RNA sequence: UAAUAAUAUCUGCCGAAUUCCCGAAAGGGAAGUGGGGGAACCAGUCUUGGGUGAAUUGAUCUUGCAACAGAGGGAUCAUAGGGAACCUUCAACCGAAUCCUUAAGCUAACCUCGCAGGCAACGGAAGGAGUUAAC
Numbered sequence: 001u002a003a004u005a006a007u008a009u010c011u012g013c014c015g016a017a018u019u020c021c022c023g024a025a026a027g028g029g030a031a032g033u034g035g036g037g038g039a040a041c042c043a044g045u046c047u048u049g050g051g052u053g054a055a056u057u058g059a060u061c062u063u064g065c066a067a068c069a070g071a072g073g074g075a076u077c078a079u080a081g082g083g084a085a086c087c088u089u090c091a092a093c094c095g096a097a098u099c100c101u102u103a104a105g106c107u108a109a110c111c112u113c114g115c116a117g118g119c120a121a122c123g124g125a126a127g128g129a130g131u132u133a134a135c
Stems, first nucleotide, its partner, number of pairs: 011120004018031003032115006043047001049100003057078007081094002

c-di-AMP riboswitch aptamer (ydaO/yuaA leader): a 135-nucleotide RNA from Paenibacillus antarcticus. The family has 106 seed sequences and 7,607 matches in Rfam 15.1. The match comes from Rfam's covariance-model search (70 bits).